Rfam assigns this 178-nucleotide sequence from Altericroceibacterium indicum to the family "Manganese Mn2+ riboswitch aptamer (yybP-ykoY)". The pairing is the family consensus, mapped onto this sequence. Rfam 15.1 lists 1,126 matches to the family in 1,062 species. Taxonomically the source falls in Altericroceibacterium (Bacteria, Pseudomonadati, Alphaproteobacteria, Erythrobacteraceae).
[Rfam]
RNA sequence: CUUCCCGUCAUCUGGGGAGUAGCCAACCGCAUUUAUGCGGGCUUUCGCGUCAACAUACUCGGUCGAGAGAUCGUGGUGCGGAAGGGACGGAUAACCGUUCAGGCGAGACCAAUGACAUUGCGAUCCUUCCCGGGCCGGGCUGGAUUUGCAGUGUCAUUGCGCGUGCUCGCCCGGCCCC
Numbered sequence: 001c002u003u004c005c006c007g008u009c010a011u012c013u014g015g016g017g018a019g020u021a022g023c024c025a026a027c028c029g030c031a032u033u034u035a036u037g038c039g040g041g042c043u044u045u046c047g048c049g050u051c052a053a054c055a056u057a058c059u060c061g062g063u064c065g066a067g068a069g070a071u072c073g074u075g076g077u078g079c080g081g082a083a084g085g086g087a088c089g090g091a092u093a094a095c096c097g098u099u100c101a102g103g104c105g106a107g108a109c110c111a112a113u114g115a116c117a118u119u120g121c122g123a124u125c126c127u128u129c130c131c132g133g134g135c136c137g138g139g140c141u142g143g144a145u146u147u148g149c150a151g152u153g154u155c156a157u158u159g160c161g162c163g164u165g166c167u168c169g170c171c172c173g174g175c176c177c178c
Base pairs, nucleotide, nucleotide: 027040028039043083044082045081046080047079048078049077050076051075052074060073061072062071063070064069084177085176086175088173089172090171